[Rfam]
RNA: Saccharopolyspora sRNA 350
RNA sequence: CUGGCGGUGAACUCCCAGAGGGCGUCCGGGUCGAGCAGGGCGGACUCGCCGAAGCGGUCGCCGUCGCCGAUGACGCCGAGCUCGGUGUCGUCGCCGUACCUGCCGGUGCCGACCCGGCUGAUCUUGCCGUGGGCGAUCAGGUGGAUCUGCUCGGCGGGGGUGCCGCGCUCGGCGAGCACCUCGCCCGGGCCGAAGUCGCGCUGGACGCAGCGGUCGGCCAGCGCGGUGAGCACGUCGACGUCCUCGAAGCCGCGCAGCACGGCGAGUUCGCCGAGCUCGCGGGGGAUGACCCGGACCUCGGAGCCGGUCUUGACGAACUCGAUCCGACCGUCGCCGACCGUGUAGGUCAACCGGCGGUUGACCCGGUACGCGCCGCCUGCGGUCUGUACCCAGGGCAGGACCCGCAGCAGCCAGCGGGAGGUGAUCUCCUGCAUCUGCGGGGCGGACUUGGUGGUCGUGGCCAGAUUACGGGCGGCAGCCGUGGUGAGGCUGGACUGCUGCUGCACCUG
Numbered sequence: 001c002u003g004g005c006g007g008u009g010a011a012c013u014c015c016c017a018g019a020g021g022g023c024g025u026c027c028g029g030g031u032c033g034a035g036c037a038g039g040g041c042g043g044a045c046u047c048g049c050c051g052a053a054g055c056g057g058u059c060g061c062c063g064u065c066g067c068c069g070a071u072g073a074c075g076c077c078g079a080g081c082u083c084g085g086u087g088u089c090g091u092c093g094c095c096g097u098a099c100c101u102g103c104c105g106g107u108g109c110c111g112a113c114c115c116g117g118c119u120g121a122u123c124u125u126g127c128c129g130u131g132g133g134c135g136a137u138c139a140g141g142u143g144g145a146u147c148u149g150c151u152c153g154g155c156g157g158g159g160g161u162g163c164c165g166c167g168c169u170c171g172g173c174g175a176g177c178a179c180c181u182c183g184c185c186c187g188g189g190c191c192g193a194a195g196u197c198g199c200g201c202u203g204g205a206c207g208c209a210g211c212g213g214u215c216g217g218c219c220a221g222c223g224c225g226g227u228g229a230g231c232a233c234g235u236c237g238a239c240g241u242c243c244u245c246g247a248a249g250c251c252g253c254g255c256a257g258c259a260c261g262g263c264g265a266g267u268u269c270g271c272c273g274a275g276c277u278c279g280c281g282g283g284g285g286a287u288g289a290c291c292c293g294g295a296c297c298u299c300g301g302a303g304c305c306g307g308u309c310u311u312g313a314c315g316a317a318c319u320c321g322a323u324c325c326g327a328c329c330g331u332c333g334c335c336g337a338c339c340g341u342g343u344a345g346g347u348c349a350a351c352c353g354g355c356g357g358u359u360g361a362c363c364c365g366g367u368a369c370g371c372g373c374c375g376c377c378u379g380c381g382g383u384c385u386g387u388a389c390c391c392a393g394g395g396c397a398g399g400a401c402c403c404g405c406a407g408c409a410g411c412c413a414g415c416g417g418g419a420g421g422u423g424a425u426c427u428c429c430u431g432c433a434u435c436u437g438c439g440g441g442g443c444g445g446a447c448u449u450g451g452u453g454g455u456c457g458u459g460g461c462c463a464g465a466u467u468a469c470g471g472g473c474g475g476c477a478g479c480c481g482u483g484g485u486g487a488g489g490c491u492g493g494a495c496u497g498c499u500g501c502u503g504c505a506c507c508u509g
Stems, first nucleotide, its partner, number of pairs: 006390004011385001014382002018328001021325002025322002028319002031316002036312006047303001049301004054233001058229007065111002068108001075103001077102002080099001083096004117222004122217002127212001130209001135206001137204004141199003147195001152192002155188001157186003161178002164174003234296003240290003244286002250282005256277003262269001329342003351379001353377005362370001391431005397425001400422002403418001405416001407415001437476002440473001443470002446467001448464005477508002480503002484499001487496002